Small nucleolar RNA SNORD70: an 89-nucleotide RNA sequence from Xenopus laevis. Rfam 15.1 lists 1,085 matches to the family in 579 species. The literature on the family includes a 2001 paper in EMBO J by Huttenhofer et al., "RNomics: an experimental approach that identifies 201 candidates for novel, small, non-messenger RNAs in mouse". It scores 77 bits against the family's covariance model.

RNA sequence: UUCUAUAUUGCCAAUGAUGGAUACUUUGUUGACUUGAUUUACUGUGAUUUAAUUCAACAAUUCGUCACUACCACUGAGGCAAUACUGUA
Numbered sequence: 001u002u003c004u005a006u007a008u009u010g011c012c013a014a015u016g017a018u019g020g021a022u023a024c025u026u027u028g029u030u031g032a033c034u035u036g037a038u039u040u041a042c043u044g045u046g047a048u049u050u051a052a053u054u055c056a057a058c059a060a061u062u063c064g065u066c067a068c069u070a071c072c073a074c075u076g077a078g079g080c081a082a083u084a085c086u087g088u089a
Stems, first nucleotide, its partner, number of pairs: 001089001003087001006084007